The family of this 84-nucleotide RNA sequence from Geobacter metallireducens is "Group II catalytic intron D1-D4-1". The pairing is the family consensus, mapped onto this sequence. The literature on the family includes a 2001 paper in Trends Genet by Bonen and Vogel, "The ins and outs of group II introns". Lineage of the source: Bacteria > Thermodesulfobacteriota > Desulfuromonadia > Geobacteraceae > Geobacter metallireducens. Group II introns are found in rRNA, tRNA and mRNA of organelles in fungi, plants and protists, and also in mRNA in bacteria.
RNA sequence: CAGGGGAGCUGAAAAGCAGCUUCCUCAUGUUCGGCAGAAGUCAGCAGAAGCCAUAGUAGUCGGCCUGACCAGCCGAUGAAGGGC
Numbered sequence: 001c002a003g004g005g006g007a008g009c010u011g012a013a014a015a016g017c018a019g020c021u022u023c024c025u026c027a028u029g030u031u032c033g034g035c036a037g038a039a040g041u042c043a044g045c046a047g048a049a050g051c052c053a054u055a056g057u058a059g060u061c062g063g064c065c066u067g068a069c070c071a072g073c074c075g076a077u078g079a080a081g082g083g084c
Base pairs, nucleotide, nucleotide: 001029002028004024005023006022007021008020009019010018011017041048042047050084051083052082059077060076061075062074063073064072